[Rfam]
The family of this 108-nucleotide sequence from Mycoplana azooxidifex is "EcpR1". A reference for the family is del Val et al. (2007), "Identification of differentially expressed small non-coding RNAs in the legume endosymbiont Sinorhizobium meliloti by comparative genomics", Mol Microbiol. Rfam links the family to the GO terms negative regulation of cell cycle, regulation of translation in response to stress and mRNA binding. It is annotated as a small RNA. Rfam's curators write: Perviously named SmelC291, SmrC10, or Sra33. According to its overproduction phenotype it was renamed Elongated Cell Phenotype RNA1. Induced by stress,EcpR1 negatively regulates cell cycle master regulatory genes dnaA and gcrA at post-transcriptional level by base pairing between its strongly conserved GC-rich loop and the target mRNAs. It's regulation is hfq-independent but requires RNase E to regulate dnaA. The source organism's lineage runs through Bacteria, Pseudomonadati, Pseudomonadota, Alphaproteobacteria and Mycoplana. The base pairs follow the family's consensus structure, which was predicted with WAR. A search with the family's covariance model found it, with a score of 85 bits.

RNA sequence: UUACCCCAUGAUGCUAGGUCCGCCGCAUCUCCUGGGUCGUGGGGUUGGCCGGCUGGUGACGACAUAAACGGAAUCCUCGUGCCGUUGUCUUCCCCAGCCGGCCCCCGA
Numbered sequence: 001u002u003a004c005c006c007c008a009u010g011a012u013g014c015u016a017g018g019u020c021c022g023c024c025g026c027a028u029c030u031c032c033u034g035g036g037u038c039g040u041g042g043g044g045u046u047g048g049c050c051g052g053c054u055g056g057u058g059a060c061g062a063c064a065u066a067a068a069c070g071g072a073a074u075c076c077u078c079g080u081g082c083c084g085u086u087g088u089c090u091u092c093c094c095c096a097g098c099c100g101g102c103c104c105c106c107g108a
Stems, first nucleotide, its partner, number of pairs: 003045008014036002016033003047103010